The family of this 125-nucleotide sequence from Jaculus jaculus is "Small nucleolar RNA SNORA63".
The family has 8 seed sequences and 1,279 matches in Rfam 15.1.
A reference for the family is Mishra and Eliceiri (1997), "Three small nucleolar RNAs that are involved in ribosomal RNA precursor processing", Proc Natl Acad Sci U S A.
Pairs were carried over by alignment from the consensus structure, which was predicted with PFOLD.
The family's RNA type in Rfam is H/ACA-box small nucleolar RNA.
E3 belongs to the H/ACA class of snoRNAs and is involved in the processing of eukaryotic pre-rRNA and has regions of complementarity to 18S rRNA. E3 is encoded in introns in the gene for protein synthesis initiation factor 4AII.

[Rfam]
RNA sequence: AUGCAGGUACAGUUACAAUAUAACUGAAGUGUUCUAUUGUUGUUCCCCCUGCUGAAAGCAUUUGAUACAUUACUAUCUCUGUCUAACUAUUCUAUAGUAAGACAGAGACGCUUGGUGUCAAACAU
Numbered sequence: 001a002u003g004c005a006g007g008u009a010c011a012g013u014u015a016c017a018a019u020a021u022a023a024c025u026g027a028a029g030u031g032u033u034c035u036a037u038u039g040u041u042g043u044u045c046c047c048c049c050u051g052c053u054g055a056a057a058g059c060a061u062u063u064g065a066u067a068c069a070u071u072a073c074u075a076u077c078u079c080u081g082u083c084u085a086a087c088u089a090u091u092c093u094a095u096a097g098u099a100a101g102a103c104a105g106a107g108a109c110g111c112u113u114g115g116u117g118u119c120a121a122a123c124a125u
Stems, first nucleotide, its partner, number of pairs: 003052005015040006022033003078106004083101002085098001